[Rfam]
RNA: ZMP/ZTP riboswitch aptamer (pfl RNA motif)
RNA sequence: UGGUUUCGACGCGACUGGCGCAGGCAAGGUGGGGCACCACCGGGGAGCGAACUUCAGUCCGGACACCGCGCGCCUGGGUGGACGGG
Numbered sequence: 001u002g003g004u005u006u007c008g009a010c011g012c013g014a015c016u017g018g019c020g021c022a023g024g025c026a027a028g029g030u031g032g033g034g035c036a037c038c039a040c041c042g043g044g045g046a047g048c049g050a051a052c053u054u055c056a057g058u059c060c061g062g063a064c065a066c067c068g069c070g071c072g073c074c075u076g077g078g079u080g081g082a083c084g085g086g
Stems, first nucleotide, its partner, number of pairs: 003052003010049003015044002017074005029040004064080004